[Rfam]
RNA sequence: CCUCUGGAGAGACUCCCGCAACGGGAGCGCCGAAGGAGAAAGCCGGAAAACCGGUGAAACUCUCAGGCAAAAGGACAGAGG
Numbered sequence: 001c002c003u004c005u006g007g008a009g010a011g012a013c014u015c016c017c018g019c020a021a022c023g024g025g026a027g028c029g030c031c032g033a034a035g036g037a038g039a040a041a042g043c044c045g046g047a048a049a050a051c052c053g054g055u056g057a058a059a060c061u062c063u064c065a066g067g068c069a070a071a072a073g074g075a076c077a078g079a080g081g
Stems, first nucleotide, its partner, number of pairs: 001081006013027004029068003032064002036062003042055002

A member of the RNA family "Glycine riboswitch aptamer" from Desulfobaculum xiamenense, 81 nucleotides long.
Its family is annotated with glycine biosynthetic process in the Gene Ontology.
Taxonomically the source falls in Desulfobaculum (Bacteria, Pseudomonadati, Desulfovibrionia, Desulfovibrionaceae).